[Rfam]
RNA sequence: AGGCUGUGAGUAUUACAUCAGGUACUGGUUUGUUUAGAAUGAUCGGUUCCUGUGUAACACUUACAGGCU
Numbered sequence: 001a002g003g004c005u006g007u008g009a010g011u012a013u014u015a016c017a018u019c020a021g022g023u024a025c026u027g028g029u030u031u032g033u034u035u036a037g038a039a040u041g042a043u044c045g046g047u048u049c050c051u052g053u054g055u056a057a058c059a060c061u062u063a064c065a066g067g068c069u
Stems, first nucleotide, its partner, number of pairs: 001069002004066003009061003015055004021050002024047006

Shown here is a 69-nucleotide sequence from Photinus pyralis, a member of the family "mir-12 microRNA precursor family".
NCBI's taxonomy places the organism under Eukaryota, Eumetazoa, Pancrustacea, Aparaglossata, Photinus.
A reference for the family is Werren et al. (2010), "Functional and evolutionary insights from the genomes of three parasitoid Nasonia species", Science.
Pairs were carried over by alignment from the consensus structure, which was predicted with RNAalifold.